[Rfam]
RNA sequence: UUUUCUAAAGGGCAAAACUACUGAAAAGUAGUGACGCAAAGUCACAGAUCUAAGGCGAAUUUUCGCUACGAUGGCUGGACCGCCGUA
Numbered sequence: 001u002u003u004u005c006u007a008a009a010g011g012g013c014a015a016a017a018c019u020a021c022u023g024a025a026a027a028g029u030a031g032u033g034a035c036g037c038a039a040a041g042u043c044a045c046a047g048a049u050c051u052a053a054g055g056c057g058a059a060u061u062u063u064c065g066c067u068a069c070g071a072u073g074g075c076u077g078g079a080c081c082g083c084c085g086u087a
Base pairs, nucleotide, nucleotide: 012037013036017032018031019030020029021028022027041080042079043078045077046076047075048072049071050070055066056065057064058063
The record is an 87-nucleotide RNA from Sporolactobacillus laevolacticus, which matches "c-di-GMP-I riboswitch aptamer" in Rfam. A search with the family's covariance model found it, with a score of 82 bits. Lineage of the source: Bacteria > Bacillota > Caryophanales > Sporolactobacillus > Sporolactobacillus laevolacticus.